[Rfam]
RNA sequence: AUGAAGUUUUCAUUUUUUACAUGCCAGAUCAUGAAUUAGUGUAUACUGAGUUAUUGAACAGAAAGGAGCAAUAAUUAAUUUCUUGUUCUAGAAAGAAGUUUGGUAUUGCUCCUUU
Number, nucleotide and partner (000 for none) at each position: 001a000002u000003g000004a000005a000006g000007u000008u000009u000010u000011c000012a000013u000014u000015u000016u000017u000018u000019a000020c000021a000022u000023g000024c000025c000026a000027g000028a000029u000030c000031a000032u000033g000034a000035a000036u000037u000038a000039g000040u000041g000042u000043a000044u000045a000046c000047u000048g000049a000050g000051u000052u000053a000054u000055u000056g000057a000058a000059c000060a000061g000062a115063a114064a113065g112066g111067a110068g109069c108070a107071a106072u105073a104074a000075u000076u000077a100078a099079u000080u097081u096082c095083u094084u093085g000086u000087u000088c000089u000090a000091g000092a000093a084094a083095g082096a081097a080098g000099u078100u077101u000102g000103g000104u073105a072106u071107u070108g069109c068110u067111c066112c065113u064114u063115u062
RNA: Plastid-psbA-1 3UTR RNA